[Rfam]
RNA: skipping-rope RNA
RNA sequence: UUCAUUCAAGGUCGGAAAGGCUCCCGACACUCCCGCAAGGGAACUUGAGAUGAUGGAUACGCCGCCCAUCUGAAUGAC
Number, nucleotide and partner (000 for none) at each position: 001u000002u077003c076004a075005u074006u073007c072008a071009a000010g000011g028012u027013c026014g025015g024016a000017a000018a000019g063020g062021c061022u000023c000024c015025c014026g013027a012028c011029a000030c047031u041032c040033c039034c000035g000036c000037a000038a000039g033040g032041g031042a000043a000044c000045u000046u000047g030048a000049g000050a000051u000052g070053a069054u068055g067056g066057a000058u000059a000060c000061g021062c020063c019064g000065c000066c056067c055068a054069u053070c052071u008072g007073a006074a005075u004076g003077a002078c000